[Rfam]
RNA sequence: GAUCGUGGUGAUGACUACAUGAAAUUCAAGCUCAACAGACCGGAUUGUAGGUUUCUUUUUUUUCAAAGGAAGAAAUUUGCGUGUCGACAACCCCGCUGAACUGAGCGAUC
Numbered sequence: 001g002a003u004c005g006u007g008g009u010g011a012u013g014a015c016u017a018c019a020u021g022a023a024a025u026u027c028a029a030g031c032u033c034a035a036c037a038g039a040c041c042g043g044a045u046u047g048u049a050g051g052u053u054u055c056u057u058u059u060u061u062u063u064c065a066a067a068g069g070a071a072g073a074a075a076u077u078u079g080c081g082u083g084u085c086g087a088c089a090a091c092c093c094c095g096c097u098g099a100a101c102u103g104a105g106c107g108a109u110c
Stems, first nucleotide, its partner, number of pairs: 001110006
A member of the RNA family "Small nucleolar RNA Z107/R87" from Aquilegia coerulea, 110 nucleotides long.
Rfam links the family to the GO terms nucleolus and RNA processing.
The base pairs follow the family's consensus structure, which was predicted with RNAfold.
It scores 96 bits against the family's covariance model.
Lineage of the source: Eukaryota > Embryophyta > Spermatophyta > Thalictroideae > Aquilegia.
By type it is a C/D-box small nucleolar RNA.